Shown here is a 264-nucleotide RNA from Dethiobacter alkaliphilus, a member of the family "Bacterial large signal recognition particle RNA". The organism belongs to Dethiobacter alkaliphilus, within Bacteria. Gene Ontology terms of the family: SRP-dependent cotranslational protein targeting to membrane, signal sequence recognition and signal recognition particle, plasma membrane targeting. The match comes from Rfam's covariance-model search (212 bits). Pairs were carried over by alignment from the consensus structure, which is taken from published work. Rfam classes the family as a non-coding RNA gene.
RNA sequence: CCGUGCUAGACGGGGAGGUAGCGGUGCCCUGUACCUGCAACCCGCUAUAGCAGGGUUGAAUUCCUGCCCCCGGCUCUGGAUCUUGGGGUCUGACCCAGGUAAGUGGUGUCGACGACCGGGUCCUGUGCGGCGUAAGCUUGUGAACCCCGUCAGGUCCGGAAGGAAGCAGCGGUAAGCAAGUCCUUGCGGGUGCCACGGGAUAGCCUGGUCUGAGCUAACUGCCGGGGUAACGCCUGGGAGAAAGAGUCAAAGGCAGGUGCGCGG
Numbered sequence: 001c002c003g004u005g006c007u008a009g010a011c012g013g014g015g016a017g018g019u020a021g022c023g024g025u026g027c028c029c030u031g032u033a034c035c036u037g038c039a040a041c042c043c044g045c046u047a048u049a050g051c052a053g054g055g056u057u058g059a060a061u062u063c064c065u066g067c068c069c070c071c072g073g074c075u076c077u078g079g080a081u082c083u084u085g086g087g088g089u090c091u092g093a094c095c096c097a098g099g100u101a102a103g104u105g106g107u108g109u110c111g112a113c114g115a116c117c118g119g120g121u122c123c124u125g126u127g128c129g130g131c132g133u134a135a136g137c138u139u140g141u142g143a144a145c146c147c148c149g150u151c152a153g154g155u156c157c158g159g160a161a162g163g164a165a166g167c168a169g170c171g172g173u174a175a176g177c178a179a180g181u182c183c184u185u186g187c188g189g190g191u192g193c194c195a196c197g198g199g200a201u202a203g204c205c206u207g208g209u210c211u212g213a214g215c216u217a218a219c220u221g222c223c224g225g226g227g228u229a230a231c232g233c234c235u236g237g238g239a240g241a242a243a244g245a246g247u248c249a250a251a252g253g254c255a256g257g258u259g260c261g262c263g264g
Stems, first nucleotide, its partner, number of pairs: 001264006009057003012030004017025001019023001034054005063257006072248005081239007091229002095226002098223003103219002105216003114210008122199006128190001131188005136181006147172004155164003
Dot-bracket structure: ((((((..(((((((.(.(...).).))))...(((((...........)))))))).....((((((...(((((....(((((((...((..((.(((..(((((......(((((((((((((((..(((((((((((.....((((....(((....)))....))))...))))))..))))).)...))))))...))))))))...))).)).))).)).))...)))))))....)))))...)))))).))))))